[Rfam]
RNA sequence: AAUUAACUUUUUGGUGUCUUAUGAUGAAGCUUCAUAGGGCAGAUUCUGAGUUGAGAAGUAAAAUUUCUCUCCACUGAUCCUCUCUAUGUUGUCUGAAGACACUAUAUUU
Number, nucleotide and partner (000 for none) at each position: 001a000002a000003u000004u000005a000006a000007c000008u000009u000010u000011u000012u104013g103014g102015u101016g100017u099018c098019u097020u000021a000022u000023g000024a000025u000026g000027a000028a000029g092030c091031u000032u000033c088034a087035u086036a083037g000038g082039g081040c000041a000042g078043a000044u000045u077046c076047u000048g074049a000050g072051u000052u000053g069054a068055g067056a066057a065058g000059u000060a000061a000062a000063a000064u000065u057066u056067c055068u054069c053070u000071c000072c050073a000074c048075u000076g046077a045078u042079c000080c000081u039082c038083u036084c000085u000086a035087u034088g033089u000090u000091g030092u029093c000094u000095g000096a000097a019098g018099a017100c016101a015102c014103u013104a012105u000106a000107u000108u000109u000
RNA: Small nucleolar RNA SNORD90